Description:
Listeria sRNA rliF: a 220-nucleotide RNA sequence from Listeria monocytogenes. The family's consensus secondary structure was predicted with WAR.

RNA sequence: UAAGGAUAGUUGUAUUUUUUAUUAUUUUGAAAUCAAUUGAGUACAUUUAGAGUGAGAACGAUUGUAUGAAUAGGGUAUACCCAAAAUAUACACGAAAGCAUCGUUGUAAAUACAUGAUUUUAGGUGUAUGAUUAGGGUGUAUAUUAAAUGGUUUUGAAAAGAGGUGCUUUUUAGUCAUGAAAGUAGCAUAUGCUCGAGUAAGUUCUACAGAUCAAAAUUU
Numbered sequence: 001u002a003a004g005g006a007u008a009g010u011u012g013u014a015u016u017u018u019u020u021a022u023u024a025u026u027u028u029g030a031a032a033u034c035a036a037u038u039g040a041g042u043a044c045a046u047u048u049a050g051a052g053u054g055a056g057a058a059c060g061a062u063u064g065u066a067u068g069a070a071u072a073g074g075g076u077a078u079a080c081c082c083a084a085a086a087u088a089u090a091c092a093c094g095a096a097a098g099c100a101u102c103g104u105u106g107u108a109a110a111u112a113c114a115u116g117a118u119u120u121u122a123g124g125u126g127u128a129u130g131a132u133u134a135g136g137g138u139g140u141a142u143a144u145u146a147a148a149u150g151g152u153u154u155u156g157a158a159a160a161g162a163g164g165u166g167c168u169u170u171u172u173a174g175u176c177a178u179g180a181a182a183g184u185a186g187c188a189u190a191u192g193c194u195c196g197a198g199u200a201a202g203u204u205c206u207a208c209a210g211a212u213c214a215a216a217a218u219u220u
Base pairs, nucleotide, nucleotide: 002019003018004017005016006015007014034064035063036062037061038060039059073082074081075080085145086144087143088142089141090140091139092138093137150219151218152217153216154215155214156213157212158172159171160170161169162168163167183208184207185206186205188203189202191200192199193198

Lineage of the source: Bacteria > Bacillota > Bacilli > Caryophanales > Listeria monocytogenes. The literature on the family includes a 2007 paper in Nucleic Acids Res by Mandin et al., "Identification of new noncoding RNAs in Listeria monocytogenes and prediction of mRNA targets".